Shown here is a 420-nucleotide RNA sequence from Corynebacterium gerontici, a member of the family "Bacterial RNase P class A". Rfam classes the family as a ribozyme.
[Rfam]
RNA sequence: UGAGCCGGCUGGGCGAUCGCGAUUCUGCGCAACGGUACUUUAAGUGCGCUGGCGCAGGGUCGAGGAAAGUCCGGACCCCACAGAGCACGGUGGUUGCUAACAGCAACCCGGGGCAACCCGAGGGCAAGUGCAGCAGAAAGUAAACCGCCAGCUUGAGGCUGGUAAGGGUGAAAGGGUGCGGUAAGAGCGCACCGGCAGUUGCGGUGACGUAACUGGCCAGGUAAACCCCACCGGGGGCAAGGCAAGAGGGCGCACACAGAUCCGGCAUUGGAUUUGCUGGCACGUGUGCCUGCGCGGAUUGUGGCGGCUCGCCUCAACGUCCGUGGGUAGCUGCUUGAGGCCGCAGGCAACUGCGGCCCUAGAUGGAUGAUCGCCGCCCGAUUUCGGGCACAGAAUCCGGCUUAUAGGCCGGCUCAUUCG
Numbered sequence: 001u002g003a004g005c006c007g008g009c010u011g012g013g014c015g016a017u018c019g020c021g022a023u024u025c026u027g028c029g030c031a032a033c034g035g036u037a038c039u040u041u042a043a044g045u046g047c048g049c050u051g052g053c054g055c056a057g058g059g060u061c062g063a064g065g066a067a068a069g070u071c072c073g074g075a076c077c078c079c080a081c082a083g084a085g086c087a088c089g090g091u092g093g094u095u096g097c098u099a100a101c102a103g104c105a106a107c108c109c110g111g112g113g114c115a116a117c118c119c120g121a122g123g124g125c126a127a128g129u130g131c132a133g134c135a136g137a138a139a140g141u142a143a144a145c146c147g148c149c150a151g152c153u154u155g156a157g158g159c160u161g162g163u164a165a166g167g168g169u170g171a172a173a174g175g176g177u178g179c180g181g182u183a184a185g186a187g188c189g190c191a192c193c194g195g196c197a198g199u200u201g202c203g204g205u206g207a208c209g210u211a212a213c214u215g216g217c218c219a220g221g222u223a224a225a226c227c228c229c230a231c232c233g234g235g236g237g238c239a240a241g242g243c244a245a246g247a248g249g250g251c252g253c254a255c256a257c258a259g260a261u262c263c264g265g266c267a268u269u270g271g272a273u274u275u276g277c278u279g280g281c282a283c284g285u286g287u288g289c290c291u292g293c294g295c296g297g298a299u300u301g302u303g304g305c306g307g308c309u310c311g312c313c314u315c316a317a318c319g320u321c322c323g324u325g326g327g328u329a330g331c332u333g334c335u336u337g338a339g340g341c342c343g344c345a346g347g348c349a350a351c352u353g354c355g356g357c358c359c360u361a362g363a364u365g366g367a368u369g370a371u372c373g374c375c376g377c378c379c380g381a382u383u384u385c386g387g388g389c390a391c392a393g394a395a396u397c398c399g400g401c402u403u404a405u406a407g408g409c410c411g412g413c414u415c416a417u418u419c420g
Base pairs, nucleotide, nucleotide: 001416002415003414004413005412006411007410008409009408010407011405012375013374014373015372016371017370018369020062021061022060023059024058025057026056027055028054029053030052067403068402069401071400072399073398074397075396076237077236078235079234083310084309085308086307088233089232090231091230092229093107094106095105096104097103108122109120110119111118112117123228124227128226129225130222131221145167146166147163148162149161150160151159152158153157175193176192177191178190179189180188195217196215197214198213199212200211201210202209203208241332242331243330250324251323252322254320255319301315303313304312305311339358340357341356342355343354344353345352346351
The organism belongs to Corynebacterium, within Bacteria. A search with the family's covariance model found it, with a score of 299 bits.